[Rfam]
RNA sequence: AUGCAUCCAGCAGGACUUGAAUUUAUGAAUUUGCCAGUUAUGAGUUGGGUGCUUUAACCAUUCAACAAUGGAUGA
Number, nucleotide and partner (000 for none) at each position: 001a000002u000003g000004c074005a073006u072007c071008c070009a000010g026011c000012a024013g023014g022015a000016c000017u000018u000019g000020a000021a000022u014023u013024u012025a000026u010027g000028a000029a000030u000031u000032u000033g000034c000035c000036a000037g000038u000039u000040a069041u068042g000043a000044g066045u065046u064047g063048g062049g061050u060051g059052c000053u000054u000055u000056a000057a000058c000059c051060a050061u049062u048063c047064a046065a045066c044067a000068a041069u040070g008071g007072a006073u005074g004075a000

Description:
A member of the RNA family "Plastid-ycf2 5UTR RNA" from Musa troglodytarum, 75 nucleotides long. Rfam's curators write: Plastid ycf2 is a non-coding RNA (ncRNA) recognised in plastids. It was found in the prime untranslated region (5UTR) of ycf2 genes, it presents a tRNA-like motif which suggests it can be involved in mRNA maturation, particularly involved in defining the precise 5' end of the transcript. The family's RNA type in Rfam is cis-regulatory element. It scores 68 bits against the family's covariance model. A reference for the family is Richter et al. (2023), "Retrograde signaling in plants: A critical review focusing on the GUN pathway and beyond", Plant Commun.